Bacterial small subunit ribosomal RNA: a 586-nucleotide part of an RNA from Luoshenia tenuis. The organism belongs to Luoshenia, within Bacteria. Pairs were carried over by alignment from the consensus structure, which is taken from published work. Its Rfam clan is "SSU clan". A reference for the family is Yusupov et al. (2001), "Crystal structure of the ribosome at 5.5 A resolution", Science. A search with the family's covariance model found it, with a score of 1584 bits.
RNA sequence: UGACGGGGGCCCGCACAAGCAGCGGAGCAUGUGGUUUAAUUCGAAGCAACGCGAAGAACCUUACCAGGUCUUGACAUCCCUCGAAGUGCAUAGAGAUAUGUACGUCCUUCGGGACGAGGAGACAGGUGGUGCAUGGUUGUCGUCAGCUCGUGUCGUGAGAUGUUGGGUUAAGUCCCGCAACGAGCGCAACCCCUACAGUUAGUUACCAGCGGGUAAAGCCGGGGACUCUAACAGGACUGCCGUGGAUAACACGGAGGAAGGUGGGGACGACGUCAAAUCAUCAUGCUCCUUAUGACCUGGGCUACACACGUGCUACAAUGGCCGGUACAAAGAGAAGCGAGACCGUAAGGUGGAGCGGAUCUCAAAAAACCGGUCCCAGUUCGGAUUGUGGGCUGCAACCCGCCCACAUGAAGUUGGAGUUGCUAGUAAUCGCGAAUCAGCAUGUCGCGGUGAAUGCGUUCCCGGGCCUUGUACACACCGCCCGUCACACCAUGGGAGUUGGGAGCGCCCGAAGUCGUUGAGGUAACCCGCAAGGGAGCCAGGCGCCGAAGGUGAGACCGAUAACUGGGGUGAAGUCGUAACAAGG
Numbered sequence: 001u002g003a004c005g006g007g008g009g010c011c012c013g014c015a016c017a018a019g020c021a022g023c024g025g026a027g028c029a030u031g032u033g034g035u036u037u038a039a040u041u042c043g044a045a046g047c048a049a050c051g052c053g054a055a056g057a058a059c060c061u062u063a064c065c066a067g068g069u070c071u072u073g074a075c076a077u078c079c080c081u082c083g084a085a086g087u088g089c090a091u092a093g094a095g096a097u098a099u100g101u102a103c104g105u106c107c108u109u110c111g112g113g114a115c116g117a118g119g120a121g122a123c124a125g126g127u128g129g130u131g132c133a134u135g136g137u138u139g140u141c142g143u144c145a146g147c148u149c150g151u152g153u154c155g156u157g158a159g160a161u162g163u164u165g166g167g168u169u170a171a172g173u174c175c176c177g178c179a180a181c182g183a184g185c186g187c188a189a190c191c192c193c194u195a196c197a198g199u200u201a202g203u204u205a206c207c208a209g210c211g212g213g214u215a216a217a218g219c220c221g222g223g224g225a226c227u228c229u230a231a232c233a234g235g236a237c238u239g240c241c242g243u244g245g246a247u248a249a250c251a252c253g254g255a256g257g258a259a260g261g262u263g264g265g266g267a268c269g270a271c272g273u274c275a276a277a278u279c280a281u282c283a284u285g286c287u288c289c290u291u292a293u294g295a296c297c298u299g300g301g302c303u304a305c306a307c308a309c310g311u312g313c314u315a316c317a318a319u320g321g322c323c324g325g326u327a328c329a330a331a332g333a334g335a336a337g338c339g340a341g342a343c344c345g346u347a348a349g350g351u352g353g354a355g356c357g358g359a360u361c362u363c364a365a366a367a368a369a370c371c372g373g374u375c376c377c378a379g380u381u382c383g384g385a386u387u388g389u390g391g392g393c394u395g396c397a398a399c400c401c402g403c404c405c406a407c408a409u410g411a412a413g414u415u416g417g418a419g420u421u422g423c424u425a426g427u428a429a430u431c432g433c434g435a436a437u438c439a440g441c442a443u444g445u446c447g448c449g450g451u452g453a454a455u456g457c458g459u460u461c462c463c464g465g466g467c468c469u470u471g472u473a474c475a476c477a478c479c480g481c482c483c484g485u486c487a488c489a490c491c492a493u494g495g496g497a498g499u500u501g502g503g504a505g506c507g508c509c510c511g512a513a514g515u516c517g518u519u520g521a522g523g524u525a526a527c528c529c530g531c532a533a534g535g536g537a538g539c540c541a542g543g544c545g546c547c548g549a550a551g552g553u554g555a556g557a558c559c560g561a562u563a564a565c566u567g568g569g570g571u572g573a574a575g576u577c578g579u580a581a582c583a584a585g586g
Stems, first nucleotide, its partner, number of pairs: 001475002003472003007469007015459002019423005024316001026314008034305002040055004064300007077122002079119005086103007105114003125289002128287004134283002136278003139274001141272002146185006152161003164177004191266004196234001198232005206223002210221003237257002240254005320375007332363003337356002342351003382413001387408007429451007478585001480582001483578002488572004493567003498562005506554004514547001516545004522540003527536002